[Rfam]
RNA: mir-172 microRNA precursor family
Organism: Populus trichocarpa
RNA sequence: GAUGCGGCAGCAUCAAGAUUCACAAACUUUAAGGCUUGAGUUGGGGUGGUACACGGUCACCUCCUUUACUCGAAAGGUUCCUUAAUUUCUGAUGGGAAUCUUGAUGAUGCUGCAUCGGC
Numbered sequence: 001g002a003u004g005c006g007g008c009a010g011c012a013u014c015a016a017g018a019u020u021c022a023c024a025a026a027c028u029u030u031a032a033g034g035c036u037u038g039a040g041u042u043g044g045g046g047u048g049g050u051a052c053a054c055g056g057u058c059a060c061c062u063c064c065u066u067u068a069c070u071c072g073a074a075a076g077g078u079u080c081c082u083u084a085a086u087u088u089c090u091g092a093u094g095g096g097a098a099u100c101u102u103g104a105u106g107a108u109g110c111u112g113c114a115u116c117g118g119c
Stems, first nucleotide, its partner, number of pairs: 001116009011106011023094002